The record is a 106-nucleotide RNA from Prosthecochloris aestuarii, which matches "SAM riboswitch aptamer (S box leader)" in Rfam. NCBI's taxonomy places the organism under Bacteria, Chlorobiota, Chlorobiales, Prosthecochloris, Prosthecochloris aestuarii.

RNA sequence: CUGUCAUCCAGAAAGGUGGAGGGACUGGCCCUGAGAAGCCUUGGCAACCGUCAUUCGUGAUUGGUGCCAAUUCCAACCCGGAGAGCUGUCCGGGAAAAGAUGAUGG
Numbered sequence: 001c002u003g004u005c006a007u008c009c010a011g012a013a014a015g016g017u018g019g020a021g022g023g024a025c026u027g028g029c030c031c032u033g034a035g036a037a038g039c040c041u042u043g044g045c046a047a048c049c050g051u052c053a054u055u056c057g058u059g060a061u062u063g064g065u066g067c068c069a070a071u072u073c074c075a076a077c078c079c080g081g082a083g084a085g086c087u088g089u090c091c092g093g094g095a096a097a098a099g100a101u102g103a104u105g106g
Base pairs, nucleotide, nucleotide: 001106002105003104004103005102006101007100008099013042014041015040016039017038021031022030023029026075027074028073043068044067045066046065048064049063050061051060052059053058072097077094078093079092080091081090082089